[Rfam]
The family of this 54-nucleotide RNA from Salmo salar is "UnaL2 LINE 3' element".
It scores 67 bits against the family's covariance model.
The base pairs follow the family's consensus structure, which is taken from published work.
Rfam classes the family as a cis-regulatory element.
RNA sequence: AGGGUUACCAUAUGUAAGUCGCUCUGGAUAAGAGCGUCUGCUAAAUGACUAAAA
Number, nucleotide and partner (000 for none) at each position: 001a000002g000003g000004g000005u000006u000007a000008c000009c000010a000011u000012a000013u043014g041015u040016a039017a000018g000019u000020c036021g035022c034023u033024c032025u031026g000027g000028a000029u000030a000031a025032g024033a023034g022035c021036g020037u000038c000039u016040g015041c014042u000043a013044a000045a000046u000047g000048a000049c000050u000051a000052a000053a000054a000
Taxonomically the source falls in Salmo (Eukaryota, Deuterostomia, Craniata, Actinopterygii).